[Rfam]
This 46-nucleotide RNA sequence from Verrucomicrobia bacterium LW23 belongs to the Rfam family "Acido-Lenti-1 RNA".

RNA sequence: UCCAGGGCUCACGCCCCGGGCUAUAGGCUUUCGCGCCUGUGGCGCU
Numbered sequence: 001u002c003c004a005g006g007g008c009u010c011a012c013g014c015c016c017c018g019g020g021c022u023a024u025a026g027g028c029u030u031u032c033g034c035g036c037c038u039g040u041g042g043c044g045c046u
Stems, first nucleotide, its partner, number of pairs: 001020003005016004033045005
Dot-bracket structure: (((.((((....)))).)))............(((((...))))).
Source information: The base pairs follow the family's consensus structure, which is taken from published work. The match comes from Rfam's covariance-model search (45 bits). By type it is a small RNA.